[Rfam]
Shown here is an 83-nucleotide sequence from Lathyrus oleraceus, a member of the family "Small nucleolar RNA Z43".
Its family is annotated with nucleolus and RNA processing in the Gene Ontology.
It is annotated as a C/D-box small nucleolar RNA.
On this family, see Chen et al., Nucleic Acids Res 2003: "The high diversity of snoRNAs in plants: identification and comparative study of 120 snoRNA genes from Oryza sativa".
Nucleotides: 083
Stems, first nucleotide, its partner, number of pairs: 001083004047057001048053001
Number, partner (000 for none) and nucleotide at each position: 001083g002082g003081a004080c005000a006000g007000u008000g009000a010000u011000g012000a013000u014000u015000c016000c017000u018000u019000u020000u021000a022000u023000a024000g025000g026000u027000c028000u029000c030000g031000u032000u033000c034000g035000u036000c037000g038000u039000a040000a041000u042000u043000g044000g045000u046000c047057a048053u049000u050000u051000u052000u053048g054000a055000u056000c057047u058000u059000g060000c061000c062000g063000a064000c065000a066000a067000u068000a069000c070000u071000g072000u073000u074000u075000u076000c077000c078000g079000a080004g081003u082002c083001c
NCBI's taxonomy places the organism under Eukaryota, Tracheophyta, Spermatophyta, Papilionoideae, Lathyrus.